[Rfam]
RNA: DUF3800-I RNA
RNA sequence: UAUAAGUGCAGGUAGAAAUACACUGCAUACUCGCGUCACCGAACUAAUUGUUUAAGCGAUAUGCAAUAUCGUCGGCCGCGGGGGGCGCCUUCGGGCGUCUUUUUUUUUUU
Numbered sequence: 001u002a003u004a005a006g007u008g009c010a011g012g013u014a015g016a017a018a019u020a021c022a023c024u025g026c027a028u029a030c031u032c033g034c035g036u037c038a039c040c041g042a043a044c045u046a047a048u049u050g051u052u053u054a055a056g057c058g059a060u061a062u063g064c065a066a067u068a069u070c071g072u073c074g075g076c077c078g079c080g081g082g083g084g085g086c087g088c089c090u091u092c093g094g095g096c097g098u099c100u101u102u103u104u105u106u107u108u109u110u
Base pairs, nucleotide, nucleotide: 007027008026009025010024011023012021013020014019030082031081032080033079034078035077039075040074041073042052043051044050056072057071058070059069060068061067083100084099085098086097087096088095089094